[Rfam]
RNA sequence: CGCACCGUGCAGCAAUGUUCGGUGUGAUGCGGCAGAAGUCAGCAGAGGCCAUAGUAGCUCUAAUGGUGUCAAAAGAGUGAAGGGC
Numbered sequence: 001c002g003c004a005c006c007g008u009g010c011a012g013c014a015a016u017g018u019u020c021g022g023u024g025u026g027a028u029g030c031g032g033c034a035g036a037a038g039u040c041a042g043c044a045g046a047g048g049c050c051a052u053a054g055u056a057g058c059u060c061u062a063a064u065g066g067u068g069u070c071a072a073a074a075g076a077g078u079g080a081a082g083g084g085c
Base pairs, nucleotide, nucleotide: 001026002025004023005022006021007020009018010017011016039046040045048085049084050083057078058077059076060075061074
RNA: Group II catalytic intron D1-D4-1
Organism: Crenothrix polyspora